Shown here is a 331-nucleotide RNA sequence from Heterostelium album, a member of the family "Nuclear RNase P". The base pairs follow the family's consensus structure, which is taken from published work. It is annotated as a ribozyme. Its family is annotated with tRNA processing, ribonuclease P activity and ribonuclease P complex in the Gene Ontology. It scores 100 bits against the family's covariance model.
RNA sequence: AUCAGCAGAAACUUGUAUUAGAUUAAACGAAUGGAUGUAUUGCAAUACAUAACAUUAAAAUAGAAAGAAUGCCACUCGAUGGCUUAAAUUUGGGAAGGUCUGAGAUACUGAAUUAUCCCUUGGUGGGAAAUCCUCGAGAGAGGGUGCGCUGGUACCAGAAAUAGUCCUCGAACGUGCAAAUAAACCAAAGACAUCCAUCCUCAGAAAAUGGAAGAGGUUGACGGUUGCCGUUCAUAGGUUGGAAUUCUGGCGUGGUAAAGAAAUCAAUGAAGUUCGAUAUACGAGGUGGAUCAAAGAUCCAUAACUUAAUUCAUGACUACUCUCUGCUGAA
Numbered sequence: 001a002u003c004a005g006c007a008g009a010a011a012c013u014u015g016u017a018u019u020a021g022a023u024u025a026a027a028c029g030a031a032u033g034g035a036u037g038u039a040u041u042g043c044a045a046u047a048c049a050u051a052a053c054a055u056u057a058a059a060a061u062a063g064a065a066a067g068a069a070u071g072c073c074a075c076u077c078g079a080u081g082g083c084u085u086a087a088a089u090u091u092g093g094g095a096a097g098g099u100c101u102g103a104g105a106u107a108c109u110g111a112a113u114u115a116u117c118c119c120u121u122g123g124u125g126g127g128a129a130a131u132c133c134u135c136g137a138g139a140g141a142g143g144g145u146g147c148g149c150u151g152g153u154a155c156c157a158g159a160a161a162u163a164g165u166c167c168u169c170g171a172a173c174g175u176g177c178a179a180a181u182a183a184a185c186c187a188a189a190g191a192c193a194u195c196c197a198u199c200c201u202c203a204g205a206a207a208a209u210g211g212a213a214g215a216g217g218u219u220g221a222c223g224g225u226u227g228c229c230g231u232u233c234a235u236a237g238g239u240u241g242g243a244a245u246u247c248u249g250g251c252g253u254g255g256u257a258a259a260g261a262a263a264u265c266a267a268u269g270a271a272g273u274u275c276g277a278u279a280u281a282c283g284a285g286g287u288g289g290a291u292c293a294a295a296g297a298u299c300c301a302u303a304a305c306u307u308a309a310u311u312c313a314u315g316a317c318u319a320c321u322c323u324c325u326g327c328u329g330a331a
Stems, first nucleotide, its partner, number of pairs: 002330003007325003012285007020091005034077002100315001101313004106257003116128004130145006146253007166238003286302007